[Rfam]
RNA sequence: UGACGGGGGAGCACCACAACCGGUGGGGGCUGCGGUUUAAUUAGAUCAAACGCAGCGCACCCUACCAGAGCCGACAGCAGAAUGACGGUCAGCUUGAAGAGCUUACCCGACGCGCUGAGAGGAGCUGCAUGGCCGCCGUCAGCUCGUGCCGCGAGGUGUCCGGUUAAGUCCGGUAACGAGCGAGACCCGUACCCUAUGUUGCCACGGAGACACUAGCUGUCUUCGGCACUCGUGGGGGACCGCUGGCGAUAAGCCAGAGGAAGGAGCGGGCCACGGUAGGUCAGUAUGGCCCGAAUGCUCUGGGAUACACGCGGCCCACAAUGGCCGGUACAAACAGAAGCCACCCCGAGAGGGGAAGCUAAUCUGCCAAAACCGGUCCCAGUCCGGAUCGAGGCCUGCAACUCGGCCUCGUGAAGUCGAAAUCGGUAGUAGUCGCUGGUCAUCAUCUAGCGGCGAAUAAGUCCCUGCUCCUUGUACACACCGCCUGUCAAGUCACCCAAGUCAGGUUCAGACGAGCCUCCCACCUAGUGGGAAGCAAGUCUGAGCUUGGCAAGGGGGGCUAAGUCAUAGCAAACAGUUGUGA
Numbered sequence: 001u002g003a004c005g006g007g008g009g010a011g012c013a014c015c016a017c018a019a020c021c022g023g024u025g026g027g028g029g030c031u032g033c034g035g036u037u038u039a040a041u042u043a044g045a046u047c048a049a050a051c052g053c054a055g056c057g058c059a060c061c062c063u064a065c066c067a068g069a070g071c072c073g074a075c076a077g078c079a080g081a082a083u084g085a086c087g088g089u090c091a092g093c094u095u096g097a098a099g100a101g102c103u104u105a106c107c108c109g110a111c112g113c114g115c116u117g118a119g120a121g122g123a124g125c126u127g128c129a130u131g132g133c134c135g136c137c138g139u140c141a142g143c144u145c146g147u148g149c150c151g152c153g154a155g156g157u158g159u160c161c162g163g164u165u166a167a168g169u170c171c172g173g174u175a176a177c178g179a180g181c182g183a184g185a186c187c188c189g190u191a192c193c194c195u196a197u198g199u200u201g202c203c204a205c206g207g208a209g210a211c212a213c214u215a216g217c218u219g220u221c222u223u224c225g226g227c228a229c230u231c232g233u234g235g236g237g238g239a240c241c242g243c244u245g246g247c248g249a250u251a252a253g254c255c256a257g258a259g260g261a262a263g264g265a266g267c268g269g270g271c272c273a274c275g276g277u278a279g280g281u282c283a284g285u286a287u288g289g290c291c292c293g294a295a296u297g298c299u300c301u302g303g304g305a306u307a308c309a310c311g312c313g314g315c316c317c318a319c320a321a322u323g324g325c326c327g328g329u330a331c332a333a334a335c336a337g338a339a340g341c342c343a344c345c346c347c348g349a350g351a352g353g354g355g356a357a358g359c360u361a362a363u364c365u366g367c368c369a370a371a372a373c374c375g376g377u378c379c380c381a382g383u384c385c386g387g388a389u390c391g392a393g394g395c396c397u398g399c400a401a402c403u404c405g406g407c408c409u410c411g412u413g414a415a416g417u418c419g420a421a422a423u424c425g426g427u428a429g430u431a432g433u434c435g436c437u438g439g440u441c442a443u444c445a446u447c448u449a450g451c452g453g454c455g456a457a458u459a460a461g462u463c464c465c466u467g468c469u470c471c472u473u474g475u476a477c478a479c480a481c482c483g484c485c486u487g488u489c490a491a492g493u494c495a496c497c498c499a500a501g502u503c504a505g506g507u508u509c510a511g512a513c514g515a516g517c518c519u520c521c522c523a524c525c526u527a528g529u530g531g532g533a534a535g536c537a538a539g540u541c542u543g544a545g546c547u548u549g550g551c552a553a554g555g556g557g558g559g560c561u562a563a564g565u566c567a568u569a570g571c572a573a574a575c576a577g578u579u580g581u582g583a
Base pairs, nucleotide, nucleotide: 001478002477003475004474005473007472008471009470010469011468012467013466016462017461020426021425022424023423024422025319027317028316029315030314031313032312033311034310035308036307042055044053065303066302067301068300069299070298071297075117076116077115078114080111087107088106089105091103092102093101121292122291124290125289126288127287130286131285132281133280134279135277136276137275138274142181143180144179145178146177147176148157149156150155160173161172162171163170187269188268189267190266192237193236194235195234196233197232198231202226203225206224207223208222209221210220211219212218240260241259243257244256245255246254247253323378324377325376326375327374328373329372335366336365337364340359341358344355345354346353347352385416390411391410392409393408394407395406396405432454433453434452435451436450437449438448439447483571484570486567487566489564491561492560493559494558496556497555498554501551502550503549504548505547506546507545508544509543510542511541512540513539516536517535519533520532521531522530523529524528
The record is a 583-nucleotide part of an RNA from Candidatus Nanosalinarum sp. J07AB56, which matches "Archaeal small subunit ribosomal RNA" in Rfam. The family is grouped with related families in Rfam's "SSU clan".